[Rfam]
RNA sequence: UUUUUAUUAAGAACUGCUGAGAGAGUAAACUUAAAGAAGCAGUAGCAACCUAUUAAAUUAGGUGCUCAAAUCAGGGGAAACCAGCAAUAAGAG
Number, nucleotide and partner (000 for none) at each position: 001u093002u092003u091004u090005u089006a088007u087008u086009a000010a000011g000012a000013a043014c042015u041016g040017c039018u000019g000020a000021g032022a031023g030024a000025g000026u074027a000028a000029a071030c023031u022032u021033a000034a000035a000036g000037a000038a000039g017040c016041a015042g014043u013044a066045g065046c064047a063048a000049c062050c061051u000052a058053u057054u000055a000056a000057a053058u052059u000060a000061g050062g049063u047064g046065c045066u044067c000068a000069a000070a000071u029072c000073a000074g026075g082076g081077g000078a000079a000080a000081c076082c075083a000084g000085c000086a008087a007088u006089a005090a004091g003092a002093g001
Shown here is a 93-nucleotide RNA sequence from Spiroplasma gladiatoris, a member of the family "SAM riboswitch aptamer (S box leader)".
The match comes from Rfam's covariance-model search (48 bits).
About the family: The SAM riboswitch is found upstream of a number of genes which code for proteins involved in methionine or cysteine biosynthesis in Gram-positive bacteria.